The record is a 72-nucleotide RNA from Didymodactylos carnosus, which matches "mir-87 microRNA precursor family" in Rfam.
RNA sequence: AAUGAACGCCUGAAAUUUUACUCAAACGUUUGCUUUUCGAUUACGUGAGCAAAGUUUCAGGUGUAUUGAUCU
Numbered sequence: 001a002a003u004g005a006a007c008g009c010c011u012g013a014a015a016u017u018u019u020a021c022u023c024a025a026a027c028g029u030u031u032g033c034u035u036u037u038c039g040a041u042u043a044c045g046u047g048a049g050c051a052a053a054g055u056u057u058c059a060g061g062u063g064u065a066u067u068g069a070u071c072u
Stems, first nucleotide, its partner, number of pairs: 002070002005067002007063007015055005021049004027045003
For this family Rfam cites "Temporal regulation of microRNA expression in Drosophila melanogaster mediated by hormonal signals and broad-Complex gene activity" (Sempere et al., Dev Biol, 2003).